[Rfam]
RNA: Plastid-psbA-4 3UTR RNA
RNA sequence: AAAAUAAAGGAGCAAUAAUCACCUUCUUGUUCUAUCAAGAGGGCGGUAUUGCUCCUUUAU
Number, nucleotide and partner (000 for none) at each position: 001a000002a000003a000004a000005u000006a058007a057008a056009g055010g054011a053012g052013c051014a050015a049016u048017a047018a000019u000020c000021a000022c043023c000024u041025u040026c039027u038028u037029g036030u000031u000032c000033u000034a000035u000036c029037a028038a027039g026040a025041g024042g000043g022044c000045g000046g000047u017048a016049u015050u014051g013052c012053u011054c010055c009056u008057u007058u006059a000060u000